[Rfam]
RNA sequence: CACACACGAAGUUCGGAUCUGAGCCGGGAGAAAUCCGGUCGGGUCCACCGGUGGCGGGAAACCGCUUUACGCUUCGUGGAGGUUCAACCGGAAAGGAAAUAU
Numbered sequence: 001c002a003c004a005c006a007c008g009a010a011g012u013u014c015g016g017a018u019c020u021g022a023g024c025c026g027g028g029a030g031a032a033a034u035c036c037g038g039u040c041g042g043g044u045c046c047a048c049c050g051g052u053g054g055c056g057g058g059a060a061a062c063c064g065c066u067u068u069a070c071g072c073u074u075c076g077u078g079g080a081g082g083u084u085c086a087a088c089c090g091g092a093a094a095g096g097a098a099a100u101a102u
Stems, first nucleotide, its partner, number of pairs: 001081001003079001005078007015046002025037002028035001053066005
Shown here is a 102-nucleotide RNA sequence from Oricola thermophila, a member of the family "rpsB sRNA". Rfam classes the family as a small RNA. The base pairs follow the family's consensus structure, which is taken from published work. The organism belongs to Oricola, within Bacteria.